[Rfam]
RNA sequence: CCCCCGCUUGCCUCCCUGAGCGGGAGCCUUUAGCUGACACUAUAGGCAUCGUUUGCCCGGCGACCUGGUCGCCGGGUUUUUUUGU
Numbered sequence: 001c002c003c004c005c006g007c008u009u010g011c012c013u014c015c016c017u018g019a020g021c022g023g024g025a026g027c028c029u030u031u032a033g034c035u036g037a038c039a040c041u042a043u044a045g046g047c048a049u050c051g052u053u054u055g056c057c058c059g060g061c062g063a064c065c066u067g068g069u070c071g072c073c074g075g076g077u078u079u080u081u082u083u084g085u
Stems, first nucleotide, its partner, number of pairs: 003024006026047004031042003055077008
The family of this 85-nucleotide RNA from Paludibacterium paludis is "Burkholderia RNA 7 (anti-hemB)". The literature on the family includes a 2013 paper in Genomics by Ramos et al., "Experimental identification of small non-coding regulatory RNAs in the opportunistic human pathogen Burkholderia cenocepacia J2315". About the family: This RNA motif was identified by computational search in b-proteobacteria Burkholderia. Co-purified with Hfq, expression confirmed by Northern blot. The family has 26 seed sequences and 479 matches in Rfam 15.1. Rfam links the family to the GO terms protein binding and bacterial biofilm matrix. NCBI's taxonomy places the organism under Bacteria, Pseudomonadati, Pseudomonadota, Chromobacteriaceae, Paludibacterium.